[Rfam]
Overview: Shown here is a 71-nucleotide RNA sequence from Trichonephila clavipes, a member of the family "Small nucleolar RNA SNORD18".

RNA sequence: UGCAAAUGAUGAGUAUAAUUGCACGAUGGUCCGUGUUUCUGAUUAUUAUGAUGUUAAUGUUUUCUGAUGCA
Numbered sequence: 001u002g003c004a005a006a007u008g009a010u011g012a013g014u015a016u017a018a019u020u021g022c023a024c025g026a027u028g029g030u031c032c033g034u035g036u037u038u039c040u041g042a043u044u045a046u047u048a049u050g051a052u053g054u055u056a057a058u059g060u061u062u063u064c065u066g067a068u069g070c071a
Base pairs, nucleotide, nucleotide: 001071002070003069004068

For this family Rfam cites "Two different snoRNAs are encoded in introns of amphibian and human L1 ribosomal protein genes" (Prislei et al., Nucleic Acids Res, 1993). The organism belongs to Trichonephila, within Eukaryota. The base pairs follow the family's consensus structure, which was predicted with PFOLD.